Annotation
The family of this 81-nucleotide RNA is "pemK RNA". Rfam's curators put it in the seed alignment.
RNA sequence: ACAAUGAUACUUCCGUCCAGCCACAGACUCAAGCAAUGGGGGCGGUUCUGAGAGAACCUCAGAAUGGUGAGAUUCCAAUGA
Numbered sequence: 001a002c003a004a005u006g007a008u009a010c011u012u013c014c015g016u017c018c019a020g021c022c023a024c025a026g027a028c029u030c031a032a033g034c035a036a037u038g039g040g041g042g043c044g045g046u047u048c049u050g051a052g053a054g055a056a057c058c059u060c061a062g063a064a065u066g067g068u069g070a071g072a073u074u075c076c077a078a079u080g081a
Stems, first nucleotide, its partner, number of pairs: 012078001013045006046064003050060003065077003